The family of this 120-nucleotide RNA sequence from Psilopogon haemacephalus is "Small nucleolar RNA SNORA32".
Rfam 15.1 lists 615 matches to the family in 234 species.
Pairs were carried over by alignment from the consensus structure, which was predicted with RNAfold.
Its family is annotated with nucleolus and RNA processing in the Gene Ontology.
The source organism's lineage runs through Eukaryota, Bilateria, Tetrapoda, Coelurosauria and Psilopogon.
Rfam describes the family as follows. ACA32 is a member of the H/ACA class of snoRNA that guide the sites of modification of uridines to pseudouridines.
RNA sequence: UGGUCAUUACCAAGGCUGCUAGGAUGUUGUUCCUAGUGAGUUGUGGACAUGACCAUAAAGUAAGUCCAUUAGACUCUUGAAUUGCCACAUAAUGUGGCACUGAGUCAGAUGGAAUAAAGC
Numbered sequence: 001u002g003g004u005c006a007u008u009a010c011c012a013a014g015g016c017u018g019c020u021a022g023g024a025u026g027u028u029g030u031u032c033c034u035a036g037u038g039a040g041u042u043g044u045g046g047a048c049a050u051g052a053c054c055a056u057a058a059a060g061u062a063a064g065u066c067c068a069u070u071a072g073a074c075u076c077u078u079g080a081a082u083u084g085c086c087a088c089a090u091a092a093u094g095u096g097g098c099a100c101u102g103a104g105u106c107a108g109a110u111g112g113a114a115u116a117a118a119g120c
Base pairs, nucleotide, nucleotide: 003053004052005051006050007049010046011045012044026041027040028039065113066112067111068110072106073105074104075103083099084098085097